Small nucleolar RNA SNORD25: an 88-nucleotide RNA sequence from Triticum urartu. Rfam classes the family as a C/D-box small nucleolar RNA. A search with the family's covariance model found it, with a score of 88 bits. The literature on the family includes a 2001 paper in Nucleic Acids Res by Qu et al., "Identification of 10 novel snoRNA gene clusters from Arabidopsis thaliana". The organism belongs to Triticum, within Eukaryota.
RNA sequence: GUUGACGGUGAUGAGCCUUUACAGACCUGUAAUGAUUCUUGGGAGCAUGAUCGCUUGAUUCAAAGACCAUCUAAGGGACUGAGUCGUU
Numbered sequence: 001g002u003u004g005a006c007g008g009u010g011a012u013g014a015g016c017c018u019u020u021a022c023a024g025a026c027c028u029g030u031a032a033u034g035a036u037u038c039u040u041g042g043g044a045g046c047a048u049g050a051u052c053g054c055u056u057g058a059u060u061c062a063a064a065g066a067c068c069a070u071c072u073a074a075g076g077g078a079c080u081g082a083g084u085c086g087u088u
Stems, first nucleotide, its partner, number of pairs: 003086004